Shown here is a 99-nucleotide RNA sequence from Sporosarcina sp. Marseille-Q4063, a member of the family "Guanidine-I riboswitch aptamer". The base pairs follow the family's consensus structure. NCBI's taxonomy places the organism under Bacteria, Bacilli, Caryophanales, Caryophanaceae, Sporosarcina.
RNA sequence: GUAAAUGUUUUCUAGGGUUCCGCGACAUCUUAUGUUGGCCUGGUCCGAGAGAAAACUCGCAGCUUUGCUGUGUCACGGAAGGAUAAAAGCCUGGGAGAA
Numbered sequence: 001g002u003a004a005a006u007g008u009u010u011u012c013u014a015g016g017g018u019u020c021c022g023c024g025a026c027a028u029c030u031u032a033u034g035u036u037g038g039c040c041u042g043g044u045c046c047g048a049g050a051g052a053a054a055a056c057u058c059g060c061a062g063c064u065u066u067g068c069u070g071u072g073u074c075a076c077g078g079a080a081g082g083a084u085a086a087a088a089g090c091c092u093g094g095g096a097g098a099a
Base pairs, nucleotide, nucleotide: 007056008055009054010053011052012051015046016045020043021042022040023037024036025035026034027033028032058072059071060070061069062068074094076097080092081091082090